[Rfam]
RNA sequence: GUGGAGCUCAAACAGAGGCGGCACUUUGCUCUCAGCACAGAAAGUGCCCCCACAGUUUGAGUCCCAC
Numbered sequence: 001g002u003g004g005a006g007c008u009c010a011a012a013c014a015g016a017g018g019c020g021g022c023a024c025u026u027u028g029c030u031c032u033c034a035g036c037a038c039a040g041a042a043a044g045u046g047c048c049c050c051c052a053c054a055g056u057u058u059g060a061g062u063c064c065c066a067c
Base pairs, nucleotide, nucleotide: 004064006062007061008060009059010058011057012056015053017051018050020048021047022046023045024044025043026042027041
RNA: mir-290 microRNA precursor family